mir-395 microRNA precursor family: a 95-nucleotide sequence from Solanum commersonii. The family has 25 seed sequences and 2,798 matches in Rfam 15.1. The literature on the family includes a 2004 paper in Mol Cell by Jones-Rhoades and Bartel, "Computational Identification of Plant MicroRNAs and Their Targets, Including a Stress-Induced miRNA". Rfam describes the family as follows. mir-395 was identified in both Arabidopsis thaliana and Oryza sativa computationally and was later experimentally verified. mir-395 is thought to target mRNAs coding for ATP sulphurylases. The mature sequence is excised from the 3' arm of the hairpin. The base pairs follow the family's consensus structure, which was predicted with PFOLD. Rfam links the family to the GO terms miRNA-mediated post-transcriptional gene silencing and RISC complex. NCBI's taxonomy places the organism under Eukaryota, Streptophyta, lamiids, Solaneae, Solanum.
[Rfam]
Nucleotides: 095
Base pairs, nucleotide, nucleotide: 006090008088009087011085012084013083014082015081016080017079018078019077020076022075024072025071026070027069028068029067030066033063034062035061
Number, partner (000 for none) and nucleotide at each position: 001000g002000u003000g004000u005000u006090c007000a008088c009087g010000a011085g012084a013083g014082u015081u016080c017079c018078c019077u020076u021000g022075a023000c024072c025071a026070c027069u028068u029067c030066a031000u032000g033063a034062g035061g036000g037000u038000u039000u040000a041000a042000u043000u044000a045000c046000u047000a048000c049000a050000u051000u052000g053000u054000u055000u056000g057000a058000u059000g060000c061035c062034c063033u064000g065000u066030u067029g068028a069027a070026g071025u072024g073000u074000u075022u076020g077019g078018g079017g080016g081015a082014a083013c084012u085011c086000c087009c088008g089000g090006g091000u092000u093000c094000a095000c